[Rfam]
RNA sequence: AACAUACAGAAGGAGCUUGUUGACUUUAUCGGUUGUUGAGUCUUGCUUUGCUGCGGUCCGUUAUGGUCGAGUCAAAGAAAGCUACGGAACCACGCCGGAAUACUUGAGUCUAAAUACGUGCCGACUCCCUCCCCGCUCUCUCGACGUCGAUUACCCUAUUGAAUUUAGUUCUGGGACCCAUCUCGAGUUGGAGUCAAAGUUUCGUACUUGUCUGGAACUGAGGGAGAUGGAGUCAUUGGCAUGAGAGAUGGAUGGUGGGUAGCGAACAAUUGGAACUCAACCGAUUGGUUUUCAAGGACAGGCCGCACAAGGAUAAGGCAGUCCUGGUUGUCUUCGUGCCAGCAAUGGUAGGAAGACAACCCCCCACCGGCGAGG
Dot-bracket structure: ..............................................................................................................................................................................((((((........))).))).((((.....))))......................................................................................................................................................................
Numbered sequence: 001a002a003c004a005u006a007c008a009g010a011a012g013g014a015g016c017u018u019g020u021u022g023a024c025u026u027u028a029u030c031g032g033u034u035g036u037u038g039a040g041u042c043u044u045g046c047u048u049u050g051c052u053g054c055g056g057u058c059c060g061u062u063a064u065g066g067u068c069g070a071g072u073c074a075a076a077g078a079a080a081g082c083u084a085c086g087g088a089a090c091c092a093c094g095c096c097g098g099a100a101u102a103c104u105u106g107a108g109u110c111u112a113a114a115u116a117c118g119u120g121c122c123g124a125c126u127c128c129c130u131c132c133c134c135g136c137u138c139u140c141u142c143g144a145c146g147u148c149g150a151u152u153a154c155c156c157u158a159u160u161g162a163a164u165u166u167a168g169u170u171c172u173g174g175g176a177c178c179c180a181u182c183u184c185g186a187g188u189u190g191g192a193g194u195c196a197a198a199g200u201u202u203c204g205u206a207c208u209u210g211u212c213u214g215g216a217a218c219u220g221a222g223g224g225a226g227a228u229g230g231a232g233u234c235a236u237u238g239g240c241a242u243g244a245g246a247g248a249u250g251g252a253u254g255g256u257g258g259g260u261a262g263c264g265a266a267c268a269a270u271u272g273g274a275a276c277u278c279a280a281c282c283g284a285u286u287g288g289u290u291u292u293c294a295a296g297g298a299c300a301g302g303c304c305g306c307a308c309a310a311g312g313a314u315a316a317g318g319c320a321g322u323c324c325u326g327g328u329u330g331u332c333u334u335c336g337u338g339c340c341a342g343c344a345a346u347g348g349u350a351g352g353a354a355g356a357c358a359a360c361c362c363c364c365c366a367c368c369g370g371c372g373a374g375g
Stems, first nucleotide, its partner, number of pairs: 175195003178191003197209004
Source information:
Shown here is a 375-nucleotide part of an RNA from Pochonia chlamydosporia, a member of the family "Ascomycota telomerase RNA". Rfam classes the family as a non-coding RNA gene. Clan: Telomerase clan. NCBI's taxonomy places the organism under Eukaryota, Pezizomycotina, leotiomyceta, Hypocreales, Pochonia chlamydosporia.